Rfam assigns this 102-nucleotide RNA from Clostridium novyi to the family "Purine riboswitch aptamer". It scores 84 bits against the family's covariance model. The organism belongs to Clostridium novyi, within Bacteria.
[Rfam]
RNA sequence: AUUAAAUAAUGUUCGUAAAUUCGUAUAUGAUCGAAAAUAUGGUUCGAUUGUUUCUACCAAAUGGCCUUAAACUAUUUGACUACGGGUGUUUAUAUUCAUGUA
Numbered sequence: 001a002u003u004a005a006a007u008a009a010u011g012u013u014c015g016u017a018a019a020u021u022c023g024u025a026u027a028u029g030a031u032c033g034a035a036a037a038u039a040u041g042g043u044u045c046g047a048u049u050g051u052u053u054c055u056a057c058c059a060a061a062u063g064g065c066c067u068u069a070a071a072c073u074a075u076u077u078g079a080c081u082a083c084g085g086g087u088g089u090u091u092a093u094a095u096u097c098a099u100g101u102a
Stems, first nucleotide, its partner, number of pairs: 019087007029049007058078007